[Rfam]
RNA: Bacterial large subunit ribosomal RNA, nucleotides 1262 to 1635
Organism: Paraburkholderia acidisoli
RNA sequence: GAUAAAGGGGGUGAAAGGCCCCCUCGCCGUAAGCCCCCAAGGUUUCCUACGCAACGUUCAUCGGCGUAGGGUGAGUCGGCCCCUAAGGCGAGGCAGAAAUGCGUAGCUGAUGGGAAACAGGUCAAUAUUCCUGUACCAGUGUGAAAUGCGAUGGGGGGACGGAUCGCGGAAGGUUGUCCGGGUGUUGGAAGUCCCGGUCGCUGCAUCGAAGAAGGCACUUUGGCAAAUCCGGGUGCGCAAUUCAAGGGUGUGGCGCGAGCGGCCUCGAGCUGCGAAGCAAUCGGAAGGGUUCCGGAAAAGCCUCUAAGCUUCAGUUUCACAUUGACCGUACCGCAAACCGACACAGGUGGGCGAGAUGAGUAUUCUAAGGCGCU
Numbered sequence: 001g002a003u004a005a006a007g008g009g010g011g012u013g014a015a016a017g018g019c020c021c022c023c024u025c026g027c028c029g030u031a032a033g034c035c036c037c038c039a040a041g042g043u044u045u046c047c048u049a050c051g052c053a054a055c056g057u058u059c060a061u062c063g064g065c066g067u068a069g070g071g072u073g074a075g076u077c078g079g080c081c082c083c084u085a086a087g088g089c090g091a092g093g094c095a096g097a098a099a100u101g102c103g104u105a106g107c108u109g110a111u112g113g114g115a116a117a118c119a120g121g122u123c124a125a126u127a128u129u130c131c132u133g134u135a136c137c138a139g140u141g142u143g144a145a146a147u148g149c150g151a152u153g154g155g156g157g158g159a160c161g162g163a164u165c166g167c168g169g170a171a172g173g174u175u176g177u178c179c180g181g182g183u184g185u186u187g188g189a190a191g192u193c194c195c196g197g198u199c200g201c202u203g204c205a206u207c208g209a210a211g212a213a214g215g216c217a218c219u220u221u222g223g224c225a226a227a228u229c230c231g232g233g234u235g236c237g238c239a240a241u242u243c244a245a246g247g248g249u250g251u252g253g254c255g256c257g258a259g260c261g262g263c264c265u266c267g268a269g270c271u272g273c274g275a276a277g278c279a280a281u282c283g284g285a286a287g288g289g290u291u292c293c294g295g296a297a298a299a300g301c302c303u304c305u306a307a308g309c310u311u312c313a314g315u316u317u318c319a320c321a322u323u324g325a326c327c328g329u330a331c332c333g334c335a336a337a338c339c340g341a342c343a344c345a346g347g348u349g350g351g352c353g354a355g356a357u358g359a360g361u362a363u364u365c366u367a368a369g370g371c372g373c374u
Stems, first nucleotide, its partner, number of pairs: 006024006025372004033352004041332002046070006055063002077328003082113002087108003091104001093102003117134005137324011148309002153304004161292004172282005178197005199255002203251004211243002215236006222230002259273005338347002354366003